[Rfam]
RNA sequence: UUGUGUACCCGAACACUAGCAUUGACUUGUAUAUAUAAUCAGUAAGUGCUACUUGUUGGGGUAUUUGAC
Numbered sequence: 001u002u003g004u005g006u007a008c009c010c011g012a013a014c015a016c017u018a019g020c021a022u023u024g025a026c027u028u029g030u031a032u033a034u035a036u037a038a039u040c041a042g043u044a045a046g047u048g049c050u051a052c053u054u055g056u057u058g059g060g061g062u063a064u065u066u067g068a069c
Stems, first nucleotide, its partner, number of pairs: 005064006013056003018050006025043003
Shown here is a 69-nucleotide sequence from Salvelinus namaycush, a member of the family "miR-430 microRNA precursor family". A search with the family's covariance model found it, with a score of 54 bits. Its family is annotated with miRNA-mediated post-transcriptional gene silencing and RISC complex in the Gene Ontology. The family is grouped with related families in Rfam's "mir-290 clan". The base pairs follow the family's consensus structure, which was predicted with RNAalifold.